[Rfam]
RNA: Small nucleolar RNA U54
Organism: Vigna radiata
RNA sequence: GGCUCAGUGAUUUUCUUGCUUUAAUUGCAGUAUACGCUAUUCCGAUUUAUUACCUGAGCGGAAAUUUAAUCGUGUAUGAGAGCC
Numbered sequence: 001g002g003c004u005c006a007g008u009g010a011u012u013u014u015c016u017u018g019c020u021u022u023a024a025u026u027g028c029a030g031u032a033u034a035c036g037c038u039a040u041u042c043c044g045a046u047u048u049a050u051u052a053c054c055u056g057a058g059c060g061g062a063a064a065u066u067u068a069a070u071c072g073u074g075u076a077u078g079a080g081a082g083c084c
Base pairs, nucleotide, nucleotide: 001084002083003082004081005080